[Rfam]
RNA sequence: GCACGUUCUCAGGGCGGGGUGAAACUCCCCACCGGCGGUAGCGGGAGAAGUCCCGAAGCCCGCGAGCGCUCUCUGUCGCAAGCUGGAGAGGUCAGCAGAUCCGGUCAAAUUCCGGAGCCGACGGUUAAAGUCCGGAUGGAAGAGAGCAAGC
Numbered sequence: 001g002c003a004c005g006u007u008c009u010c011a012g013g014g015c016g017g018g019g020u021g022a023a024a025c026u027c028c029c030c031a032c033c034g035g036c037g038g039u040a041g042c043g044g045g046a047g048a049a050g051u052c053c054c055g056a057a058g059c060c061c062g063c064g065a066g067c068g069c070u071c072u073c074u075g076u077c078g079c080a081a082g083c084u085g086g087a088g089a090g091g092u093c094a095g096c097a098g099a100u101c102c103g104g105u106c107a108a109a110u111u112c113c114g115g116a117g118c119c120g121a122c123g124g125u126u127a128a129a130g131u132c133c134g135g136a137u138g139g140a141a142g143a144g145a146g147c148a149a150g151c
Base pairs, nucleotide, nucleotide: 005147006146007145008144009143010142017029018028019027031131032130033120034119035063036062037061038060058118059117066096067095100116101115102114103113104112122134123133124132